[Rfam]
RNA sequence: UGUCCCAUUGUACUGCCUCUUAUUUGCGCUACAAAAUAAGAGAUAAUCCUCAUGGGAUAAAUAAAAGUCUGUCAUAGUCUGAUGGAGAAGAAUGAAUAUCAGCUUCUUUCUAUAUGAAAUGGCAGAACAAAGCAUU
Dot-bracket structure: ...((((.........(((....................)))..........))))..............((((..............((((...............))))........)))).............
Numbered sequence: 001u002g003u004c005c006c007a008u009u010g011u012a013c014u015g016c017c018u019c020u021u022a023u024u025u026g027c028g029c030u031a032c033a034a035a036a037u038a039a040g041a042g043a044u045a046a047u048c049c050u051c052a053u054g055g056g057a058u059a060a061a062u063a064a065a066a067g068u069c070u071g072u073c074a075u076a077g078u079c080u081g082a083u084g085g086a087g088a089a090g091a092a093u094g095a096a097u098a099u100c101a102g103c104u105u106c107u108u109u110c111u112a113u114a115u116g117a118a119a120u121g122g123c124a125g126a127a128c129a130a131a132g133c134a135u136u
Stems, first nucleotide, its partner, number of pairs: 004056004017042003071123004089111004
The family of this 136-nucleotide RNA sequence from Python bivittatus is "Small nucleolar RNA SNORA29".
The family is grouped with related families in Rfam's "SNORA20 clan".
About the family: ACA29 is a member of the H/ACA class of snoRNA that guide the sites of modification of uridines to pseudouridines.
Pairs were carried over by alignment from the consensus structure, which was predicted with PFOLD.
It is annotated as an H/ACA-box small nucleolar RNA.
NCBI's taxonomy places the organism under Eukaryota, Deuterostomia, Dipnotetrapodomorpha, Unidentata, Python.